[Rfam]
RNA sequence: GAGUUGCUCAUCACCGGCGAGGUUAAUCUGUUCAGCAGAGGAGCCGAAGCGAAAGCGAGUCUGAAGAGGGCGCAUAGUCGGUGGUGGCAGACGCGAAACCUUGUGAUCUACCCUUGGCCAGGCUGAAGCUUCGGUAACACGGAGUGGAGGGCCGAACCAGUAAGCGUUGAAAAGCUUUUGGAUGAGCUGAGGGUAGGGGUGAAAGGCUAAUCAAACUGGGAAAUAGCUCGUA
Number, nucleotide and partner (000 for none) at each position: 001g000002a000003g000004u000005u089006g088007c087008u000009c086010a085011u084012c083013a082014c081015c080016g079017g078018c077019g000020a000021g045022g044023u043024u042025a000026a000027u039028c038029u037030g000031u000032u000033c000034a000035g000036c000037a029038g028039a027040g000041g000042a024043g023044c022045c021046g000047a000048a000049g056050c055051g000052a000053a000054a000055g050056c049057g000058a000059g071060u070061c069062u068063g000064a000065a000066g000067a000068g062069g061070g060071c059072g000073c000074a000075u000076a000077g018078u017079c016080g015081g014082u013083g012084g011085u010086g009087g007088c006089a005090g000091a000092c230093g229094c000095g227096a000097a000098a000099c220100c219101u218102u000103g216104u215105g000106a000107u000108c196109u195110a194111c193112c192113c191114u190115u189116g188117g187118c186119c184120a000121g153122g152123c151124u150125g000126a000127a000128g145129c144130u143131u142132c141133g140134g000135u000136a000137a000138c000139a000140c133141g132142g131143a130144g129145u128146g000147g000148a000149g000150g124151g123152c122153c121154g000155a000156a000157c181158c180159a179160g000161u000162a177163a176164g175165c174166g000167u000168u000169g000170a000171a000172a000173a000174g165175c164176u163177u162178u000179u159180g158181g157182a000183u000184g119185a000186g118187c117188u116189g115190a114191g113192g112193g111194u110195a109196g108197g000198g208199g207200u206201g000202a000203a000204a000205g000206g200207c199208u198209a000210a000211u000212c000213a000214a000215a104216c103217u000218g101219g100220g099221a000222a000223a000224u000225a000226g000227c095228u000229c093230g092231u000232a000

Bacterial large subunit ribosomal RNA: a 232-nucleotide part of an RNA from Thermaurantimonas aggregans. Rfam 15.1 lists 51,934 matches to the family in 10,816 species. Lineage of the source: Bacteria > Pseudomonadati > Bacteroidota > Flavobacteriia > Thermaurantimonas.